[Rfam]
RNA sequence: CCAUUCUCGUCUCCUUAUCACUUUUCCAGCCCAGCUGUCUCACUGCAGGUGUUGGACGGAGAACUGAUAAGGGAACGGGACUGA
Numbered sequence: 001c002c003a004u005u006c007u008c009g010u011c012u013c014c015u016u017a018u019c020a021c022u023u024u025u026c027c028a029g030c031c032c033a034g035c036u037g038u039c040u041c042a043c044u045g046c047a048g049g050u051g052u053u054g055g056a057c058g059g060a061g062a063a064c065u066g067a068u069a070a071g072g073g074a075a076c077g078g079g080a081c082u083g084a
Base pairs, nucleotide, nucleotide: 012073013072014071015070016069017068018067019066020065022063023062024061025060026059027058030055031054
A member of the RNA family "mir-184 microRNA precursor family" from Pelodiscus sinensis, 84 nucleotides long. A reference for the family is Chen et al. (2005), "The developmental miRNA profiles of zebrafish as determined by small RNA cloning", Genes Dev. Lineage of the source: Eukaryota > Gnathostomata > Sauropsida > Trionychia > Pelodiscus. Gene Ontology terms of the family: RISC complex and gene silencing by miRNA. The base pairs follow the family's consensus structure, which was predicted with PFOLD.